U4 spliceosomal RNA: a 134-nucleotide sequence from Capitella teleta.
From the family's description: U4 small nuclear RNA (U4 snRNA) is a component of the major U2-dependent spliceosome.
A search with the family's covariance model found it, with a score of 110 bits.
RNA sequence: AGCUUUGCGCAGUGGCAGUACCAUAGCCGAUGAGGUUUAUCCGAGGCGUGGUUAUUGCUAGUUGAAAACUAUACCCCGCGCGGUCGCCCUGAAAUACGGGCGGCUGGCGCAAUUUCUGCAGGCUUCCAAGGGAG
Numbered sequence: 001a002g003c004u005u006u007g008c009g010c011a012g013u014g015g016c017a018g019u020a021c022c023a024u025a026g027c028c029g030a031u032g033a034g035g036u037u038u039a040u041c042c043g044a045g046g047c048g049u050g051g052u053u054a055u056u057g058c059u060a061g062u063u064g065a066a067a068a069c070u071a072u073a074c075c076c077c078g079c080g081c082g083g084u085c086g087c088c089c090u091g092a093a094a095u096a097c098g099g100g101c102g103g104c105u106g107g108c109g110c111a112a113u114u115u116c117u118g119c120a121g122g123c124u125u126c127c128a129a130g131g132g133a134g
Stems, first nucleotide, its partner, number of pairs: 020052005026047003034042002078110003081106009123134004